RNA: caulobacter sRNA CC3513
Organism: Caulobacter henricii
RNA sequence: AUCCGCUAGGCGGGGCUCAGGCAGGGGGCUUGCUUCUAGAGCGAGCGGACCCGGCCGAUCCCGCGAGGCGAGGUCGGAUGGUGGUGGCGGCCGUGAUGGUGCGGCGUGCGGGUCAUUGCGGGCGGGCUAUAGCGGAUAGGGCGGCGGGGGGGAAGGGGUGGCGGAUGGCAAG
Numbered sequence: 001a002u003c004c005g006c007u008a009g010g011c012g013g014g015g016c017u018c019a020g021g022c023a024g025g026g027g028g029c030u031u032g033c034u035u036c037u038a039g040a041g042c043g044a045g046c047g048g049a050c051c052c053g054g055c056c057g058a059u060c061c062c063g064c065g066a067g068g069c070g071a072g073g074u075c076g077g078a079u080g081g082u083g084g085u086g087g088c089g090g091c092c093g094u095g096a097u098g099g100u101g102c103g104g105c106g107u108g109c110g111g112g113u114c115a116u117u118g119c120g121g122g123c124g125g126g127c128u129a130u131a132g133c134g135g136a137u138a139g140g141g142c143g144g145c146g147g148g149g150g151g152g153a154a155g156g157g158g159u160g161g162c163g164g165a166u167g168g169c170a171a172g
Stems, first nucleotide, its partner, number of pairs: 002014005015159004020056003024052003028046005059153004064148001069143001073137003077133001081130005088124001091121003096116005102110002